[Rfam]
RNA sequence: UGGGCUGCUAUGAUUAUAAAAAAUUCCUCGUUCUGAAAGCUAUCAUCAUGGCAUGAUAGACUCAUUUACACCCAUAGAAUAUGAGCAUCC
Numbered sequence: 001u002g003g004g005c006u007g008c009u010a011u012g013a014u015u016a017u018a019a020a021a022a023a024u025u026c027c028u029c030g031u032u033c034u035g036a037a038a039g040c041u042a043u044c045a046u047c048a049u050g051g052c053a054u055g056a057u058a059g060a061c062u063c064a065u066u067u068a069c070a071c072c073c074a075u076a077g078a079a080u081a082u083g084a085g086c087a088u089c090c
Base pairs, nucleotide, nucleotide: 003090004089006087007086